RNA sequence: AGAAUGCAUGUUGAUUAUCUCUAAGGCCAUGGGAUAAACAAAUUAACCUGCAAAACAAAGUUAGCACAUUCUAUAAUGGUUCUAAAAUGCUCACUAACCUGGCUCUAAUACCAAUCAAUAGGAAAAAUUC
Number, nucleotide and partner (000 for none) at each position: 001a000002g000003a000004a000005u000006g000007c000008a000009u120010g119011u118012u117013g116014a115015u114016u113017a000018u000019c000020u000021c000022u107023a106024a000025g104026g103027c102028c101029a000030u000031g100032g099033g098034a000035u000036a000037a000038a000039c000040a000041a000042a000043u000044u000045a000046a000047c000048c000049u087050g000051c000052a000053a000054a081055a080056c000057a000058a077059a000060g000061u000062u073063a072064g071065c000066a000067c000068a000069u000070u000071c064072u063073a062074u000075a000076a000077u058078g000079g000080u055081u054082c000083u000084a000085a000086a000087a049088u000089g000090c000091u000092c000093a000094c000095u000096a000097a000098c033099c032100u031101g028102g027103c026104u025105c000106u023107a022108a000109u000110a000111c000112c000113a016114a015115u014116c013117a012118a011119u010120a009121g000122g000123a000124a000125a000126a000127a000128u000129u000130c000
This 130-nucleotide RNA from Vitis rotundifolia belongs to the Rfam family "MIR845_2 microRNA precursor family". The organism belongs to Vitis, within Eukaryota. A reference for the family is Jaillon et al. (2007), "The grapevine genome sequence suggests ancestral hexaploidization in major angiosperm phyla", Nature. A search with the family's covariance model found it, with a score of 93 bits.